[Rfam]
Source information:
A member of the RNA family "SraG RNA" from Shimwellia blattae, 180 nucleotides long. Gene Ontology terms of the family: mRNA binding and sRNA-mediated gene silencing. Rfam describes the family as follows. This RNA was discovered in E. coli during a large scale screen. Evidence was found for specific cleavage of this RNA. For this family Rfam cites "Novel small RNA-encoding genes in the intergenic regions of Escherichia coli" (Argaman et al., Curr Biol, 2001). Taxonomically the source falls in Shimwellia blattae (Bacteria, Pseudomonadota, Gammaproteobacteria, Shimwellia). A search with the family's covariance model found it, with a score of 94 bits.
RNA sequence: CUCCGUUGCAUCCUCGCGACUAAUGACAACCCUGUCCCGCCCGUACCGGUGCGGAAAAACGUUCUCAAUAGCCGCGCGAACCUCUGCAAUGGAGAUCCAUACCUGGCAACAAUACAUGAGUUUGUAGCAAAUUGCUGCCGUUUGGUUGAAAAAAGGGGCCUUUUGAAAAGGCCCCUUUUU
Numbered sequence: 001c002u003c004c005g006u007u008g009c010a011u012c013c014u015c016g017c018g019a020c021u022a023a024u025g026a027c028a029a030c031c032c033u034g035u036c037c038c039g040c041c042c043g044u045a046c047c048g049g050u051g052c053g054g055a056a057a058a059a060c061g062u063u064c065u066c067a068a069u070a071g072c073c074g075c076g077c078g079a080a081c082c083u084c085u086g087c088a089a090u091g092g093a094g095a096u097c098c099a100u101a102c103c104u105g106g107c108a109a110c111a112a113u114a115c116a117u118g119a120g121u122u123u124g125u126a127g128c129a130a131a132u133u134g135c136u137g138c139c140g141u142u143u144g145g146u147u148g149a150a151a152a153a154a155g156g157g158g159c160c161u162u163u164u165g166a167a168a169a170g171g172c173c174c175c176u177u178u179u180u
Stems, first nucleotide, its partner, number of pairs: 001094004008087003015078004020071003024067003100130001155175008